[Rfam]
RNA sequence: AAUGAGCUGCUUGGUUCGUAAGCUUACGUAUUGCCUUGGGAGCAUAGUCUUUUAUCAUUAGGAAACCGUCUCUAUCUGAAUAAUUCCCUGAUUGGAAAAUAUUAUGCAGAUAUAUGGAGUCCACCUAUACAAAAAAAGUUCUUUGAGGAUUUUAAGCGACGACCGAAGCGGUUCAUGA
Numbered sequence: 001a002a003u004g005a006g007c008u009g010c011u012u013g014g015u016u017c018g019u020a021a022g023c024u025u026a027c028g029u030a031u032u033g034c035c036u037u038g039g040g041a042g043c044a045u046a047g048u049c050u051u052u053u054a055u056c057a058u059u060a061g062g063a064a065a066c067c068g069u070c071u072c073u074a075u076c077u078g079a080a081u082a083a084u085u086c087c088c089u090g091a092u093u094g095g096a097a098a099a100u101a102u103u104a105u106g107c108a109g110a111u112a113u114a115u116g117g118a119g120u121c122c123a124c125c126u127a128u129a130c131a132a133a134a135a136a137a138g139u140u141c142u143u144u145g146a147g148g149a150u151u152u153u154a155a156g157c158g159a160c161g162a163c164c165g166a167a168g169c170g171g172u173u174c175a176u177g178a
Stems, first nucleotide, its partner, number of pairs: 002176010012165004017161003036146003039142005061122003066117004074111005080100002085096003

6S / SsrS RNA: a 178-nucleotide RNA.
The family's RNA type in Rfam is non-coding RNA gene.
The match comes from Rfam's covariance-model search (52 bits).